RNA sequence: GGAUGUGCUGAAGACCUGCUCGCUAGGCCACGCACGGAGGACGCUUGUUUCUCAUGGGCCCCGGCCCGCCUAGGGGAAAGUCCCCGGACCGCCGGCAGAGAGUGCCGGGCGCGGCUGCGCCCUCGCCCGCCCCCAACAUCACCAUGUUACCGCCGAGACGCCCCUGGGCCGAGCGGGUGAGCGCGGGGCGGGCUCUCGUCACGGCCAUAGACACGCAGGUAGUGCGCAGGCGCACCAACAGAACGGGGCUCACUCUCAGGCCAUC
Numbered sequence: 001g002g003a004u005g006u007g008c009u010g011a012a013g014a015c016c017u018g019c020u021c022g023c024u025a026g027g028c029c030a031c032g033c034a035c036g037g038a039g040g041a042c043g044c045u046u047g048u049u050u051c052u053c054a055u056g057g058g059c060c061c062c063g064g065c066c067c068g069c070c071u072a073g074g075g076g077a078a079a080g081u082c083c084c085c086g087g088a089c090c091g092c093c094g095g096c097a098g099a100g101a102g103u104g105c106c107g108g109g110c111g112c113g114g115c116u117g118c119g120c121c122c123u124c125g126c127c128c129g130c131c132c133c134c135a136a137c138a139u140c141a142c143c144a145u146g147u148u149a150c151c152g153c154c155g156a157g158a159c160g161c162c163c164c165u166g167g168g169c170c171g172a173g174c175g176g177g178u179g180a181g182c183g184c185g186g187g188g189c190g191g192g193c194u195c196u197c198g199u200c201a202c203g204g205c206c207a208u209a210g211a212c213a214c215g216c217a218g219g220u221a222g223u224g225c226g227c228a229g230g231c232g233c234a235c236c237a238a239c240a241g242a243a244c245g246g247g248g249c250u251c252a253c254u255c256u257c258a259g260g261c262c263a264u265c
Stems, first nucleotide, its partner, number of pairs: 002265004008259004014220006023073006037053005079250002082248004094106004107122006124192001126190001130188004139180004150176004160169003222235005
Rfam assigns this 265-nucleotide RNA sequence from Probosciger aterrimus to the family "RNase MRP". It scores 146 bits against the family's covariance model. Taxonomically the source falls in Probosciger (Eukaryota, Dinosauria, Coelurosauria, Telluraves). By type it is a ribozyme.